Shown here is a 100-nucleotide RNA from Rhodobacter sp. CACIA14H1, a member of the family "Pyrrolysine insertion sequence mttB". The source organism's lineage runs through Bacteria, Pseudomonadota, Alphaproteobacteria, Rhodobacterales and Rhodobacter. Gene Ontology term of the family: pyrrolysine incorporation. The family's RNA type in Rfam is cis-regulatory element.
RNA sequence: AUUUCGGAUUCGAAGCUGCCGGACAUGCAGGCGGGGUGGGAGCAGGGGAUCACCAAUGCGCUGGCGGGCCUGUCGGGGCUGAACAUGUGUUACGAGGCGG
Numbered sequence: 001a002u003u004u005c006g007g008a009u010u011c012g013a014a015g016c017u018g019c020c021g022g023a024c025a026u027g028c029a030g031g032c033g034g035g036g037u038g039g040g041a042g043c044a045g046g047g048g049a050u051c052a053c054c055a056a057u058g059c060g061c062u063g064g065c066g067g068g069c070c071u072g073u074c075g076g077g078g079c080u081g082a083a084c085a086u087g088u089g090u091u092a093c094g095a096g097g098c099g100g
Base pairs, nucleotide, nucleotide: 003012033062034061077098079096080095